Shown here is a 138-nucleotide RNA from Setaria italica, a member of the family "Small nucleolar RNA Z247". Rfam classes the family as a C/D-box small nucleolar RNA. The source organism's lineage runs through Eukaryota, Streptophytina, Embryophyta, Liliopsida and Setaria. The family's consensus secondary structure was predicted with PFOLD. The family has 8 seed sequences and 7,071 matches in Rfam 15.1. On this family, see Chen et al., Nucleic Acids Res 2003: "The high diversity of snoRNAs in plants: identification and comparative study of 120 snoRNA genes from Oryza sativa". Rfam links the family to the GO terms nucleolus and RNA processing.
[Rfam]
RNA sequence: CCCAUUGAAGAUGAAGAAUUGGUCUCCUACAUCCUGGCCGGUCUUGACAUCGAGUUCAAUCCCCUGUGUCGGCCAUUGUUGCACGGGUCGAGCCAAUCACUGUGGGGGAACUAUUCUCUCAGCUUCUCAGCUUUGAGU
Numbered sequence: 001c002c003c004a005u006u007g008a009a010g011a012u013g014a015a016g017a018a019u020u021g022g023u024c025u026c027c028u029a030c031a032u033c034c035u036g037g038c039c040g041g042u043c044u045u046g047a048c049a050u051c052g053a054g055u056u057c058a059a060u061c062c063c064c065u066g067u068g069u070c071g072g073c074c075a076u077u078g079u080u081g082c083a084c085g086g087g088u089c090g091a092g093c094c095a096a097u098c099a100c101u102g103u104g105g106g107g108g109a110a111c112u113a114u115u116c117u118c119u120c121a122g123c124u125u126c127u128c129a130g131c132u133u134u135g136a137g138u
Base pairs, nucleotide, nucleotide: 005136006135007134008133093106094105096103097102